A member of the RNA family "Histone 3' UTR stem-loop" from Aphelocoma coerulescens, 45 nucleotides long. Rfam describes the family as follows. The mRNAs of metazoan histone genes lack a poly-A tail. 3' end processing occurs at a site between a highly conserved stem-loop (modelled by this family) and a purine rich region around 20 nts downstream (the histone downstream element, or HDE). The base pairs follow the family's consensus structure, which is taken from published work. The organism belongs to Aphelocoma, within Eukaryota.
RNA sequence: CAAACGGCUCUUUUAAGAGCCACCACACGAUCUUAACAGAGCUGU
Numbered sequence: 001c002a003a004a005c006g007g008c009u010c011u012u013u014u015a016a017g018a019g020c021c022a023c024c025a026c027a028c029g030a031u032c033u034u035a036a037c038a039g040a041g042c043u044g045u
Stems, first nucleotide, its partner, number of pairs: 006021006